[Rfam]
Shown here is a 76-nucleotide sequence from Chiloscyllium punctatum, a member of the family "mir-30 microRNA precursor family". The literature on the family includes a 2001 paper in Science by Lagos-Quintana et al., "Identification of novel genes coding for small expressed RNAs". The organism belongs to Chiloscyllium, within Eukaryota. A search with the family's covariance model found it, with a score of 58 bits.
RNA sequence: GCAGAUGGUGUAAACAUCCUACACUCUCAGUUAUGACAAUUGGAAAAACUGGGAGAAGGCUGUUUACUCUCAUUGG
Numbered sequence: 001g002c003a004g005a006u007g008g009u010g011u012a013a014a015c016a017u018c019c020u021a022c023a024c025u026c027u028c029a030g031u032u033a034u035g036a037c038a039a040u041u042g043g044a045a046a047a048a049c050u051g052g053g054a055g056a057a058g059g060c061u062g063u064u065u066a067c068u069c070u071c072a073u074u075g076g
Stems, first nucleotide, its partner, number of pairs: 002075003008069001010067007018059003024055009